[Rfam]
RNA sequence: GGCAAGUUUCAGGGAAGGUGCAAUUCCUUACUGGCGGUGACAGAAGUUGGUCACAUUCACUUCUGCAGCCCGCGAGCCGUGCAAACGGCAGAUACCGGUGUGAGUCCGGAGCCAACGGUCACAGUCCGGAUGAAAGAAACGGAGC
Numbered sequence: 001g002g003c004a005a006g007u008u009u010c011a012g013g014g015a016a017g018g019u020g021c022a023a024u025u026c027c028u029u030a031c032u033g034g035c036g037g038u039g040a041c042a043g044a045a046g047u048u049g050g051u052c053a054c055a056u057u058c059a060c061u062u063c064u065g066c067a068g069c070c071c072g073c074g075a076g077c078c079g080u081g082c083a084a085a086c087g088g089c090a091g092a093u094a095c096c097g098g099u100g101u102g103a104g105u106c107c108g109g110a111g112c113c114a115a116c117g118g119u120c121a122c123a124g125u126c127c128g129g130a131u132g133a134a135a136g137a138a139a140c141g142g143a144g145c
Base pairs, nucleotide, nucleotide: 006140007139008138009137010136016028017027018026030125031124032114033113034073035072036071037070068112069111076089077088078087093110095109096108097107098106116128117127118126
This 145-nucleotide RNA sequence from Bifidobacterium tsurumiense belongs to the Rfam family "FMN riboswitch aptamer (RFN element)". NCBI's taxonomy places the organism under Bacteria, Bacillati, Actinomycetota, Actinomycetes, Bifidobacterium. A search with the family's covariance model found it, with a score of 81 bits. Pairs were carried over by alignment from the consensus structure, which is taken from published work.